[Rfam]
RNA sequence: UUCCUCAUGGUGCUUAUCACAGACUGUGUUCUUACACUAACUGUAUAGAAAGAGGAAGGAAAAGUAAACCUAGCCCAUACUCCUCAGUUUAGGCCCUGUGCCUGGUCUGGAGUGGGAAGACAUGG
Numbered sequence: 001u002u003c004c005u006c007a008u009g010g011u012g013c014u015u016a017u018c019a020c021a022g023a024c025u026g027u028g029u030u031c032u033u034a035c036a037c038u039a040a041c042u043g044u045a046u047a048g049a050a051a052g053a054g055g056a057a058g059g060a061a062a063a064g065u066a067a068a069c070c071u072a073g074c075c076c077a078u079a080c081u082c083c084u085c086a087g088u089u090u091a092g093g094c095c096c097u098g099u100g101c102c103u104g105g106u107c108u109g110g111a112g113u114g115g116g117a118a119g120a121c122a123u124g125g
Stems, first nucleotide, its partner, number of pairs: 002060003005056002008053001020043003026037004074116005085109003089105006
Dot-bracket structure: .(((((.(...........(((...((((....))))...))).........).)).))).............(((((......(((.((((((.....)))))).)))..))))).........
Rfam assigns this 125-nucleotide sequence from Castor canadensis to the family "Small nucleolar RNA SNORA51". It scores 98 bits against the family's covariance model.